RNA sequence: ACUGAUGAUGAUUUAUCUCUUGGAAUCUCGUUCGUCUGAAAUUCUGAUGAGACCUUAUUAUAACUGACAGUU
Numbered sequence: 001a002c003u004g005a006u007g008a009u010g011a012u013u014u015a016u017c018u019c020u021u022g023g024a025a026u027c028u029c030g031u032u033c034g035u036c037u038g039a040a041a042u043u044c045u046g047a048u049g050a051g052a053c054c055u056u057a058u059u060a061u062a063a064c065u066g067a068c069a070g071u072u
Stems, first nucleotide, its partner, number of pairs: 026052005033046002
The record is a 72-nucleotide RNA sequence from Aquarana catesbeiana, which matches "Small nucleolar RNA SNORD30" in Rfam. The family's RNA type in Rfam is C/D-box small nucleolar RNA. On this family, see Tycowski et al., Nature 1996: "A mammalian gene with introns instead of exons generating stable RNA products". The family is grouped with related families in Rfam's "SNORD30 clan". Its family is annotated with RNA processing and nucleolus in the Gene Ontology. The organism belongs to Aquarana, within Eukaryota. A search with the family's covariance model found it, with a score of 42 bits.